This 62-nucleotide sequence from bacteria symbiont BFo2 of Frankliniella occidentalis belongs to the Rfam family "DnaX ribosomal frameshifting element". A reference for the family is Larsen et al. (1997), "Structural probing and mutagenic analysis of the stem-loop required for Escherichia coli dnaX ribosomal frameshifting: programmed efficiency of 50%", J Mol Biol. Rfam describes the family as follows. This family represents a ribosomal frameshifting element found in the mRNA of the dnaX gene in E. coli. The dnaX gene has two encoded products tau and gamma which are produced in a 1:1 ratio. The organism belongs to Enterobacterales, within Bacteria. The family's RNA type in Rfam is frameshift element.
RNA sequence: GGCAAGGAGCUUCCCAAGCAAAAAAGAAUGAGCCGGUUGCGUCGAGUCCGCGACCGGCACAA
Numbered sequence: 001g002g003c004a005a006g007g008a009g010c011u012u013c014c015c016a017a018g019c020a021a022a023a024a025a026g027a028a029u030g031a032g033c034c035g036g037u038u039g040c041g042u043c044g045a046g047u048c049c050g051c052g053a054c055c056g057g058c059a060c061a062a
Stems, first nucleotide, its partner, number of pairs: 032058006039051002041048001